[Rfam]
RNA sequence: GGAUGUGAGAGCAAUCUGUUUGCGACCCGUGUCACCCCAUUGACCAGCCAGGGUUGAUUGGGCUGAUCUGGCCAGCUAGGCAGGUGUCCCCUUCCUCCCUCCCUGCUCCAUGCAUGUCCUUCCCGAAGCUAGGCGGUCAGUCCAAGAGGAUGAGCUUCCCAGUUGGAGGGGUGCUGUUCAUGGGUCAAGAGUAUACAGUAGCUGCACUCCCCUUCUAGAAGCUCCAAACCAAGCUCAAGGUGCAUUUGUAGGAGAACCUGGCUGGGGUAGCGGAGCUUCCAAGACUGCAGACACAUCCAAGUGAGGCACUGCAUGGGGUAGGGCGGGGUUU
Numbered sequence: 001g002g003a004u005g006u007g008a009g010a011g012c013a014a015u016c017u018g019u020u021u022g023c024g025a026c027c028c029g030u031g032u033c034a035c036c037c038c039a040u041u042g043a044c045c046a047g048c049c050a051g052g053g054u055u056g057a058u059u060g061g062g063c064u065g066a067u068c069u070g071g072c073c074a075g076c077u078a079g080g081c082a083g084g085u086g087u088c089c090c091c092u093u094c095c096u097c098c099c100u101c102c103c104u105g106c107u108c109c110a111u112g113c114a115u116g117u118c119c120u121u122c123c124c125g126a127a128g129c130u131a132g133g134c135g136g137u138c139a140g141u142c143c144a145a146g147a148g149g150a151u152g153a154g155c156u157u158c159c160c161a162g163u164u165g166g167a168g169g170g171g172u173g174c175u176g177u178u179c180a181u182g183g184g185u186c187a188a189g190a191g192u193a194u195a196c197a198g199u200a201g202c203u204g205c206a207c208u209c210c211c212c213u214u215c216u217a218g219a220a221g222c223u224c225c226a227a228a229c230c231a232a233g234c235u236c237a238a239g240g241u242g243c244a245u246u247u248g249u250a251g252g253a254g255a256a257c258c259u260g261g262c263u264g265g266g267g268u269a270g271c272g273g274a275g276c277u278u279c280c281a282a283g284a285c286u287g288c289a290g291a292c293a294c295a296u297c298c299a300a301g302u303g304a305g306g307c308a309c310u311g312c313a314u315g316g317g318g319u320a321g322g323g324c325g326g327g328g329u330u331u
Stems, first nucleotide, its partner, number of pairs: 001109003005103001007101003011097001014093001018091001024088003028084001030082004035075001037071003042068002045065001047063003118171001119169004123140001125138002129135001142162001148159003201276003207270002210267004215261001222254004228249002231246002299331003305324001307322001309321004
About this RNA:
The family of this 331-nucleotide sequence from Columba livia is "7SK RNA". About the family: 7SK was discovered as an abundant small nuclear RNA in the mid-70s but a possible function has only recently been suggested. Two independent studies have found that 7SK RNA binds the CDK9/cyclin T complex (known as elongation factor P-TEFb). The base pairs follow the family's consensus structure, which is taken from published work.